This 64-nucleotide sequence from Trifolium medium belongs to the Rfam family "MIR5291 microRNA precursor family".
The organism belongs to Trifolium, within Eukaryota.
Its family is annotated with miRNA-mediated post-transcriptional gene silencing and RISC complex in the Gene Ontology.
It scores 60 bits against the family's covariance model.

RNA sequence: GAUGGAUUAAAUCCAAUCCAUUAACAUUUAUAUAAUAUAUUGGAUGGAUUGGAUGAAUUUUUUG
Numbered sequence: 001g002a003u004g005g006a007u008u009a010a011a012u013c014c015a016a017u018c019c020a021u022u023a024a025c026a027u028u029u030a031u032a033u034a035a036u037a038u039a040u041u042g043g044a045u046g047g048a049u050u051g052g053a054u055g056a057a058u059u060u061u062u063u064g
Stems, first nucleotide, its partner, number of pairs: 004060005011054012026038002029035001